[Rfam]
RNA sequence: GUGGCUAUGUGUAACUGGCGAGGUAUACGGAAUAACCGUAGGGGAGCACAUAGUAUCGACAAGUCGCUCGCCUGGGCAAAAGGU
Dot-bracket structure: ...(((((((((..(([[[[[.....((((.....))))..))..)))))))))........(((..]]]]]..))).......
This 84-nucleotide sequence from Gracilibacillus halophilus belongs to the Rfam family "ZMP/ZTP riboswitch aptamer (pfl RNA motif)". Taxonomically the source falls in Gracilibacillus halophilus (Bacteria, Bacillati, Caryophanales, Gracilibacillus). A search with the family's covariance model found it, with a score of 59 bits. The base pairs follow the family's consensus structure, which is taken from published work.